[Rfam]
RNA sequence: GUGAGACUGUGGCCCAUCGGCCGAGUGCGACCGAUAAACUGUUCCAGGUCGGCAUCAGGCGCAGCCCUCGUGCCGACAGUAAAUGAUCAGCCAGCAGCCGCUGCAACCACAGGGAG
Number, nucleotide and partner (000 for none) at each position: 001g000002u000003g000004a000005g000006a000007c000008u000009g000010u000011g000012g000013c000014c000015c000016a000017u000018c000019g000020g000021c000022c000023g000024a000025g000026u000027g000028c000029g000030a000031c000032c000033g000034a000035u000036a000037a000038a000039c000040u000041g000042u000043u000044c000045c000046a000047g000048g077049u076050c075051g074052g073053c000054a000055u000056c070057a000058g068059g067060c000061g000062c000063a000064g000065c000066c000067c059068u058069c000070g056071u000072g000073c052074c051075g050076a049077c048078a000079g000080u000081a000082a000083a000084u000085g000086a000087u000088c000089a000090g000091c000092c103093a102094g101095c100096a000097g000098c000099c000100g095101c094102u093103g092104c000105a000106a000107c000108c000109a000110c000111a000112g000113g000114g000115a000116g000
The record is a 116-nucleotide RNA from Streptomyces monashensis, which matches "Streptomyces-metK RNA" in Rfam. The source organism's lineage runs through Bacteria, Bacillati, Actinomycetota, Kitasatosporales and Streptomyces. The family's consensus secondary structure is taken from published work.